[Rfam]
RNA sequence: GUGGCGUGAUGAACGUGUUUAUCCAUUCGCUGAGCGCUGCUGGUUCUGUCCCUCAGCGGCCAUGUGGUCCGUUCUGGGCCGCGGAGUUACAGCGGUCUGGUUCUGCUCGGCUGCUCCAAUGUUCUAUUGGGUCGACCGUGGCGGGAUCUGAUGCGCUGGUGCGAGGGUCAGGCCAGUCCUGACAAAGACGAAUAGACGUGUCUGAUCAC
Numbered sequence: 001g002u003g004g005c006g007u008g009a010u011g012a013a014c015g016u017g018u019u020u021a022u023c024c025a026u027u028c029g030c031u032g033a034g035c036g037c038u039g040c041u042g043g044u045u046c047u048g049u050c051c052c053u054c055a056g057c058g059g060c061c062a063u064g065u066g067g068u069c070c071g072u073u074c075u076g077g078g079c080c081g082c083g084g085a086g087u088u089a090c091a092g093c094g095g096u097c098u099g100g101u102u103c104u105g106c107u108c109g110g111c112u113g114c115u116c117c118a119a120u121g122u123u124c125u126a127u128u129g130g131g132u133c134g135a136c137c138g139u140g141g142c143g144g145g146a147u148c149u150g151a152u153g154c155g156c157u158g159g160u161g162c163g164a165g166g167g168u169c170a171g172g173c174c175a176g177u178c179c180u181g182a183c184a185a186a187g188a189c190g191a192a193u194a195g196a197c198g199u200g201u202c203u204g205a206u207c208a209c
Stems, first nucleotide, its partner, number of pairs: 010208003014204001017201002020198001023195001025193005030187002034183001039177004045172004050167005056160002058088003063083008091157004095152003104143002106140001109137002112134002115131007
Dot-bracket structure: .........(((.(..((.(..(.(((((((..(....((((..((((.(((((.(((((..((((((((.....))))))))..)))..(((((((......(((..((.((.(((((((...))))))).)).))..).))......))).)))).))..))))).)))).)))).....)..)).))))).)..).))..).))).
This 209-nucleotide RNA from Sinocyclocheilus rhinocerous belongs to the Rfam family "Small nucleolar RNA SNORD17". The organism belongs to Sinocyclocheilus, within Eukaryota. A search with the family's covariance model found it, with a score of 50 bits. The family's consensus secondary structure was predicted with RNAalifold.